[Rfam]
RNA sequence: AAUGGAACCCUAUUCCCUUUAUAGUGCACUACUUUGUGCCAUGGUCAAAAGUAGUGCACUAUAAAGGGAAUAAGGUGCCAUUU
Numbered sequence: 001a002a003u004g005g006a007a008c009c010c011u012a013u014u015c016c017c018u019u020u021a022u023a024g025u026g027c028a029c030u031a032c033u034u035u036g037u038g039c040c041a042u043g044g045u046c047a048a049a050a051g052u053a054g055u056g057c058a059c060u061a062u063a064a065a066g067g068g069a070a071u072a073a074g075g076u077g078c079c080a081u082u083u
Stems, first nucleotide, its partner, number of pairs: 001083002005078001007076003012071008022061009
Annotation
A member of the RNA family "mir-130 microRNA precursor family" from Salvelinus namaycush, 83 nucleotides long. A search with the family's covariance model found it, with a score of 41 bits. Taxonomically the source falls in Salvelinus (Eukaryota, Euteleosteomorpha, Protacanthopterygii, Salmoniformes). The family has 9 seed sequences and 2,580 matches in Rfam 15.1. The base pairs follow the family's consensus structure, which was predicted with PFOLD. The literature on the family includes a 2003 paper in Dev Cell by Houbaviy et al., "Embryonic stem cell-specific MicroRNAs".